Rfam assigns this 108-nucleotide sequence from Mimosa pudica to the family "Plastid-rps12 3UTR RNA". Pairs were carried over by alignment from the consensus structure, which was predicted with LocARNA. Rfam describes the family as follows. Plastid rpl20 is a non-coding RNA (ncRNA) recognised in plastids. It was found in the three prime untranslated region (3UTR) of rps12 gene, its 3UTR location sugest a role in transcript maduration. It is annotated as a cis-regulatory element. For this family Rfam cites "Retrograde signaling in plants: A critical review focusing on the GUN pathway and beyond" (Richter et al., Plant Commun, 2023). The family has 1,299 seed sequences and 1,710 matches in Rfam 15.1. The source organism's lineage runs through Eukaryota, Euphyllophyta, eudicotyledons, Gunneridae and Mimosa.
[Rfam]
RNA sequence: GGUUUCCGUUGGUGCAAAUCUAAUCAACUCACUCAAUUUGUAAUUUCAGAUGAGAAAGACUUCCCCAUUGGUAGCAAAUGCUUAUCCAUUAAGCGGGGGAAAUUCGAU
Numbered sequence: 001g002g003u004u005u006c007c008g009u010u011g012g013u014g015c016a017a018a019u020c021u022a023a024u025c026a027a028c029u030c031a032c033u034c035a036a037u038u039u040g041u042a043a044u045u046u047c048a049g050a051u052g053a054g055a056a057a058g059a060c061u062u063c064c065c066c067a068u069u070g071g072u073a074g075c076a077a078a079u080g081c082u083u084a085u086c087c088a089u090u091a092a093g094c095g096g097g098g099g100a101a102a103u104u105c106g107a108u
Base pairs, nucleotide, nucleotide: 009023010022011021012020063098064097065096066095067089068088070086071085072084073083074082